[Rfam]
RNA: R2 RNA element
RNA sequence: CUUUGGUCACAGUGUAAGAAAUCCCAAACAGUAGCUUAGCUUUCCAAUCACGCUCAUAUAGGUAUUAAACCGUCUUCGUCGGUCUGAGGUAGAAGGGUUUUAGUCGGUAGUUCCGAGGACUUCUUCCUCGGGAAUGCGACACUACCCAGUCGUACGGUCGGCUGGGUGUCUUUUGAAGAUUUCCUCUCUUCCACGAAA
Numbered sequence: 001c002u003u004u005g006g007u008c009a010c011a012g013u014g015u016a017a018g019a020a021a022u023c024c025c026a027a028a029c030a031g032u033a034g035c036u037u038a039g040c041u042u043u044c045c046a047a048u049c050a051c052g053c054u055c056a057u058a059u060a061g062g063u064a065u066u067a068a069a070c071c072g073u074c075u076u077c078g079u080c081g082g083u084c085u086g087a088g089g090u091a092g093a094a095g096g097g098u099u100u101u102a103g104u105c106g107g108u109a110g111u112u113c114c115g116a117g118g119a120c121u122u123c124u125u126c127c128u129c130g131g132g133a134a135u136g137c138g139a140c141a142c143u144a145c146c147c148a149g150u151c152g153u154a155c156g157g158u159c160g161g162c163u164g165g166g167u168g169u170c171u172u173u174u175g176a177a178g179a180u181u182u183c184c185u186c187u188c189u190u191c192c193a194c195g196a197a198a
Base pairs, nucleotide, nucleotide: 041064043062044061046059075197076196077195078194079193088192089191091189092188094185095184096183103140104139105138106137112132113131114130115129116128117127118126119125142168144167145166146165147164148163
Dot-bracket structure: ........................................(.((.(............).)).)..........(((((........((.((.(((......((((.....((((((((.....))))))))....)))).(.(((((..............))))))..............)))..)).))))))).